Annotation:
Shown here is a 404-nucleotide RNA sequence from Chlorobium sp., a member of the family "Bacterial RNase P class A". The organism belongs to Chlorobium, within Bacteria. It is annotated as a ribozyme.

[Rfam]
RNA sequence: AAACCGCAAGCGUGCAGUCGCUGUACGGCAUAAAAACCGUGCAGAGGAAAGUCCGAACUUCACAGGGCAGGGUGCCGGUCGAGAGCCUUUCGGGGCUCAAGGCCGGGGAUAGCGGCGCAAGCCGCUUAUCACAGAGAGUGCAACAGAAAGCAUACCGCUCAGGGCAACCGGAGUAAGGGUGAAACGGCGGUGUAAGAGACCACCAGACAUUUCAGUAAUGGAGUGUGCUCGGCAAACCUCCCCGAAGCAAGGCUAAAUAGGAAAGCUUUCCCCCCGCGGGGAAAAGAGCGGCCCGUUCAAUUCCGAAAGGAGAGUUUUCGGGUAAGCCGCAUCAGAUAAAUGGCUGCAGUUUUGCCCGGCUACCGGGCAAUUCACAGAAUUCGGCUUACAGCUUCGGUUUCGGU
Numbered sequence: 001a002a003a004c005c006g007c008a009a010g011c012g013u014g015c016a017g018u019c020g021c022u023g024u025a026c027g028g029c030a031u032a033a034a035a036a037c038c039g040u041g042c043a044g045a046g047g048a049a050a051g052u053c054c055g056a057a058c059u060u061c062a063c064a065g066g067g068c069a070g071g072g073u074g075c076c077g078g079u080c081g082a083g084a085g086c087c088u089u090u091c092g093g094g095g096c097u098c099a100a101g102g103c104c105g106g107g108g109a110u111a112g113c114g115g116c117g118c119a120a121g122c123c124g125c126u127u128a129u130c131a132c133a134g135a136g137a138g139u140g141c142a143a144c145a146g147a148a149a150g151c152a153u154a155c156c157g158c159u160c161a162g163g164g165c166a167a168c169c170g171g172a173g174u175a176a177g178g179g180u181g182a183a184a185c186g187g188c189g190g191u192g193u194a195a196g197a198g199a200c201c202a203c204c205a206g207a208c209a210u211u212u213c214a215g216u217a218a219u220g221g222a223g224u225g226u227g228c229u230c231g232g233c234a235a236a237c238c239u240c241c242c243c244g245a246a247g248c249a250a251g252g253c254u255a256a257a258u259a260g261g262a263a264a265g266c267u268u269u270c271c272c273c274c275c276g277c278g279g280g281g282a283a284a285a286g287a288g289c290g291g292c293c294c295g296u297u298c299a300a301u302u303c304c305g306a307a308a309g310g311a312g313a314g315u316u317u318u319c320g321g322g323u324a325a326g327c328c329g330c331a332u333c334a335g336a337u338a339a340a341u342g343g344c345u346g347c348a349g350u351u352u353u354g355c356c357c358g359g360c361u362a363c364c365g366g367g368c369a370a371u372u373c374a375c376a377g378a379a380u381u382c383g384g385c386u387u388a389c390a391g392c393u394u395c396g397g398u399u400u401c402g403g404u
Stems, first nucleotide, its partner, number of pairs: 001400006008394004012389001013348007021044008049387003053384005058247004070243003074240001075106005107132001108130004133239002138237002140233002155178002157174004162169002186204002189201003206228001207226008251328004261319006301308001